[Rfam]
RNA sequence: AACCCCCUGAUCCUAUUUCAGAACUUUGGCCGGCUCGGAAUAGAAUCAGGGGGUGCAAACUGCCCACUGGCAGAAAGGAUUAUAGCAAAUGCGUACCCUAUUGCAAUACAGCCCGGCCAAUAUG
Numbered sequence: 001a002a003c004c005c006c007c008u009g010a011u012c013c014u015a016u017u018u019c020a021g022a023a024c025u026u027u028g029g030c031c032g033g034c035u036c037g038g039a040a041u042a043g044a045a046u047c048a049g050g051g052g053g054u055g056c057a058a059a060c061u062g063c064c065c066a067c068u069g070g071c072a073g074a075a076a077g078g079a080u081u082a083u084a085g086c087a088a089a090u091g092c093g094u095a096c097c098c099u100a101u102u103g104c105a106a107u108a109c110a111g112c113c114c115g116g117c118c119a120a121u122a123u124g
Base pairs, nucleotide, nucleotide: 002054003053004052005051006050007049008048009047010046011045013043014042015041016040017039018038019037021036022035026120027119028118029117030116031115032114033113
The family of this 124-nucleotide sequence from Klebsiella pneumoniae is "Pseudoknot of the regulatory region of the repBA gene". On this family, see Athanasopoulos et al., J Bacteriol 1999: "Analysis of elements involved in pseudoknot-dependent expression and regulation of the repA gene of an IncL/M plasmid". By type it is a cis-regulatory element. Gene Ontology term of the family: translation. Lineage of the source: Bacteria > Pseudomonadota > Enterobacteriaceae > Klebsiella > Klebsiella pneumoniae complex. The family's consensus secondary structure is taken from published work.